Iron response element I: a 35-nucleotide RNA from Myotis davidii. The family's RNA type in Rfam is cis-regulatory element. Pairs were carried over by alignment from the consensus structure, which is taken from published work. A reference for the family is Huang et al. (1999), "An atypical iron-responsive element (IRE) within crayfish ferritin mRNA and an iron regulatory protein 1 (IRP1)-like protein from crayfish hepatopancreas", Insect Biochem Mol Biol. Rfam 15.1 lists 6,829 matches to the family in 599 species. Taxonomically the source falls in Myotis (Eukaryota, Metazoa, Chordata, Euteleostomi).
RNA sequence: CUGGCUCUUGUUUCAACAGCGUUUGGAUGGAACAG
Numbered sequence: 001c002u003g004g005c006u007c008u009u010g011u012u013u014c015a016a017c018a019g020c021g022u023u024u025g026g027a028u029g030g031a032a033c034a035g
Base pairs, nucleotide, nucleotide: 001035002034003033006031007030008029010028012027013026014025015024016023017021